Shown here is a 79-nucleotide RNA sequence, a member of the family "Twister_sister_ribozyme".
The sequence is in the family's curated seed alignment.

RNA sequence: ACAGCCCGCAAGGCCGACGUAUAGCACGCCGCUGGUGCAAGUCCAGCCGCCCGAAAGGGCGGGCGCUCAUGGGUCGCAA
Numbered sequence: 001a002c003a004g005c006c007c008g009c010a011a012g013g014c015c016g017a018c019g020u021a022u023a024g025c026a027c028g029c030c031g032c033u034g035g036u037g038c039a040a041g042u043c044c045a046g047c048c049g050c051c052c053g054a055a056a057g058g059g060c061g062g063g064c065g066c067u068c069a070u071g072g073g074u075c076g077c078a079a
Stems, first nucleotide, its partner, number of pairs: 004074004013064003018028003031047004048061005

Rfam links the family to the GO term catalytic activity.